[Rfam]
Nucleotides: 143
Stems, first nucleotide, its partner, number of pairs: 003141009013131004018126007026118001028116004
Number, partner (000 for none) and nucleotide at each position: 001000u002000a003141u004140u005139a006138a007137a008136a009135a010134u011133u012000c013131c014130a015129u016128c017000c018126a019125u020124u021123u022122c023121u024120a025000c026118u027000g028116u029115u030114a031113a032000a033000a034000a035000u036000u037000g038000a039000u040000g041000u042000a043000a044000c045000u046000a047000a048000c049000a050000g051000a052000a053000c054000a055000a056000u057000c058000a059000a060000a061000c062000a063000a064000u065000g066000a067000c068000a069000c070000a071000u072000g073000g074000a075000u076000g077000u078000c079000g080000u081000g082000u083000g084000u085000a086000c087000u088000u089000c090000a091000u092000g093000c094000u095000a096000a097000c098000a099000c100000a101000c102000a103000a104000a105000a106000c107000c108000a109000g110000u111000c112000a113031u114030u115029a116028a117000u118026a119000a120024u121023a122022g123021a124020a125019a126018u127000g128016g129015a130014u131013g132000a133011a134010a135009u136008u137007u138006u139005u140004a141003a142000c143000a
Overview: MIR7502 microRNA precursor family: a 143-nucleotide RNA sequence from Gossypium gossypioides. The match comes from Rfam's covariance-model search (96 bits).